[Rfam]
RNA sequence: GGUUGUAUUUUGAGUCUGUAACUGAAUCAAAAGUGAAUCAAAAGGUGAACAUUGGAACUACAUUUUGUGUACUUGUGGAUAACUUUAACC
Numbered sequence: 001g002g003u004u005g006u007a008u009u010u011u012g013a014g015u016c017u018g019u020a021a022c023u024g025a026a027u028c029a030a031a032a033g034u035g036a037a038u039c040a041a042a043a044g045g046u047g048a049a050c051a052u053u054g055g056a057a058c059u060a061c062a063u064u065u066u067g068u069g070u071a072c073u074u075g076u077g078g079a080u081a082a083c084u085u086u087a088a089c090c
Stems, first nucleotide, its partner, number of pairs: 001090005009056005015048002023040003027036003058078005